Rfam assigns this 110-nucleotide RNA sequence to the family "LOOT RNA".
The family's RNA type in Rfam is small RNA.
Nucleotides: 110
Base pairs, nucleotide, nucleotide: 001033003031004030009026010025011024013022014021015020040077041076042075043074044073045072046071047070048069049068053067055066056065057064079098080097081096082095083094084093085092086091099110100109101108102107
Number, partner (000 for none) and nucleotide at each position: 001033u002000a003031c004030c005000u006000a007000a008000a009026c010025c011024c012000a013022u014021a015020g016000u017000u018000u019000u020015c021014u022013a023000a024011g025010g026009g027000c028000a029000u030004g031003g032000c033001a034000u035000c036000a037000a038000a039000u040077c041076g042075u043074u044073c045072a046071g047070c048069a049068u050000a051000u052000u053067g054000a055066c056065c057064c058000c059000g060000u061000c062000a063000u064057g065056g066055g067053c068049g069048u070047g071046c072045u073044g074043a075042a076041c077040g078000u079098u080097g081096c082095a083094a084093g085092u086091c087000g088000a089000a090000a091086g092085g093084c094083u095082u096081g097080u098079a099110u100109g101108c102107c103000g104000a105000a106000a107102g108101g109100c110099a

Pairs were carried over by alignment from the consensus structure, which is taken from published work.